The family of this 290-nucleotide RNA from Coniochaeta ligniaria is "A. fumigatus sRNA Afu_309". The organism belongs to Coniochaeta ligniaria, within Eukaryota. The family has 10 seed sequences and 663 matches in Rfam 15.1. A reference for the family is Jochl et al. (2008), "Small ncRNA transcriptome analysis from Aspergillus fumigatus suggests a novel mechanism for regulation of protein synthesis", Nucleic Acids Res. Pairs were carried over by alignment from the consensus structure, which was predicted with WAR.
RNA sequence: CUUUUUUUCUCCUGCACGGGUCCGGUCCAAGGCGAUCCCCUGCCUGUUUCGACAGGUUCAGGGUUGAUUGCUGAGGCAGCUCGAUACUUUAAGGAGCACAUCUUAUUCUCUAUGGUGUAAAUUUCCAAUCGUCGGAUCCAAGACAAAAGAGGGCUUCCAAGGGCGCCGAGUUCGCGGUAAAACGCUGAGCACGGUUAGCUCUAGAAGUUCCGAAGGACGUUAUAUUCCACCCCUUUCACCGAGAUCGUCGAUCUAUGAGGUUGAGGUAAACCAUUUCCUAAUCCACAUUU
Numbered sequence: 001c002u003u004u005u006u007u008u009c010u011c012c013u014g015c016a017c018g019g020g021u022c023c024g025g026u027c028c029a030a031g032g033c034g035a036u037c038c039c040c041u042g043c044c045u046g047u048u049u050c051g052a053c054a055g056g057u058u059c060a061g062g063g064u065u066g067a068u069u070g071c072u073g074a075g076g077c078a079g080c081u082c083g084a085u086a087c088u089u090u091a092a093g094g095a096g097c098a099c100a101u102c103u104u105a106u107u108c109u110c111u112a113u114g115g116u117g118u119a120a121a122u123u124u125c126c127a128a129u130c131g132u133c134g135g136a137u138c139c140a141a142g143a144c145a146a147a148a149g150a151g152g153g154c155u156u157c158c159a160a161g162g163g164c165g166c167c168g169a170g171u172u173c174g175c176g177g178u179a180a181a182a183c184g185c186u187g188a189g190c191a192c193g194g195u196u197a198g199c200u201c202u203a204g205a206a207g208u209u210c211c212g213a214a215g216g217a218c219g220u221u222a223u224a225u226u227c228c229a230c231c232c233c234u235u236u237c238a239c240c241g242a243g244a245u246c247g248u249c250g251a252u253c254u255a256u257g258a259g260g261u262u263g264a265g266g267u268a269a270a271c272c273a274u275u276u277c278c279u280a281a282u283c284c285a286c287a288u289u290u
Base pairs, nucleotide, nucleotide: 018139019138020137021136022135023134024133025077026076027075028073029072032071034069035068036067037066038063039062040061041060042059044056045054046053047052085131088128089127094118096116097115099114149210150209154207155206156205157204165195166194167193168192170190171189172188173187174185175184216283217282219277222274223273232266233265234264235263238261239260240259243253244252245251246250